[Rfam]
RNA sequence: CCGGCCCCAAUGACGGCCUGCCUUAAAGCCAGCCUGCUGGUGAGGCAGACCCGAAAGCUUGGCGUG
Numbered sequence: 001c002c003g004g005c006c007c008c009a010a011u012g013a014c015g016g017c018c019u020g021c022c023u024u025a026a027a028g029c030c031a032g033c034c035u036g037c038u039g040g041u042g043a044g045g046c047a048g049a050c051c052c053g054a055a056a057g058c059u060u061g062g063c064g065u066g
Stems, first nucleotide, its partner, number of pairs: 001066001004063002015051002018048007030039003
RNA: Selenocysteine insertion sequence 1
Organism: Mauremys mutica